[Rfam]
RNA: FMN riboswitch aptamer (RFN element)
RNA sequence: GAAGUCCUUCGGGGUCGGGUGUAAUUCCCAAUCGGCGGUGAUAGAGAAAUCUUAAGCCCGCGAGCGUAACAGCAGGAUUUGGUGUAAGUCCAAAGCCGACAGUAAUAGUCUGGAUGGAAGAAGGAGCUG
Numbered sequence: 001g002a003a004g005u006c007c008u009u010c011g012g013g014g015u016c017g018g019g020u021g022u023a024a025u026u027c028c029c030a031a032u033c034g035g036c037g038g039u040g041a042u043a044g045a046g047a048a049a050u051c052u053u054a055a056g057c058c059c060g061c062g063a064g065c066g067u068a069a070c071a072g073c074a075g076g077a078u079u080u081g082g083u084g085u086a087a088g089u090c091c092a093a094a095g096c097c098g099a100c101a102g103u104a105a106u107a108g109u110c111u112g113g114a115u116g117g118a119a120g121a122a123g124g125a126g127c128u129g
Stems, first nucleotide, its partner, number of pairs: 005125006017029003031109002033098002035061004056096002078094005100112003